[Rfam]
RNA sequence: CGGCUGUAAUGGUCAAGUGGUUGAAGGCUUUCAUUAUUCUUCUCCCGCUACCUCAUACACAUUGGAACCCUCUCACGGCGCCCAGUGCGAAUGCCGCGGUGGUCACACACUCGCAUGGGUAACCUGCGAUUGCUGCUAUGACCCUAAGCAAUGAAGAUGAUACUUGAGGGAGGUUUCACUCUGCAGAGGCAUCUUCACCGUCGCAUGGCGUGCUGGACUACGAUCGUUAGGGGUUUGAGGUAGCGGUUGGGGAUGGAGAUGUCAACUCCAAUUUUU
Numbered sequence: 001c002g003g004c005u006g007u008a009a010u011g012g013u014c015a016a017g018u019g020g021u022u023g024a025a026g027g028c029u030u031u032c033a034u035u036a037u038u039c040u041u042c043u044c045c046c047g048c049u050a051c052c053u054c055a056u057a058c059a060c061a062u063u064g065g066a067a068c069c070c071u072c073u074c075a076c077g078g079c080g081c082c083c084a085g086u087g088c089g090a091a092u093g094c095c096g097c098g099g100u101g102g103u104c105a106c107a108c109a110c111u112c113g114c115a116u117g118g119g120u121a122a123c124c125u126g127c128g129a130u131u132g133c134u135g136c137u138a139u140g141a142c143c144c145u146a147a148g149c150a151a152u153g154a155a156g157a158u159g160a161u162a163c164u165u166g167a168g169g170g171a172g173g174u175u176u177c178a179c180u181c182u183g184c185a186g187a188g189g190c191a192u193c194u195u196c197a198c199c200g201u202c203g204c205a206u207g208g209c210g211u212g213c214u215g216g217a218c219u220a221c222g223a224u225c226g227u228u229a230g231g232g233g234u235u236u237g238a239g240g241u242a243g244c245g246g247u248u249g250g251g252g253a254u255g256g257a258g259a260u261g262u263c264a265a266c267u268c269c270a271a272u273u274u275u276u
Stems, first nucleotide, its partner, number of pairs: 002014003019273005025267001029261001031259002034257002038252003045246011057234001069233003073229001075227003079222002082216008091206004096201004101143001103141002106135002108132002111129005117124002144148001152197007163188003170181003
RNA: Fungal signal recognition particle RNA
Organism: Colletotrichum musicola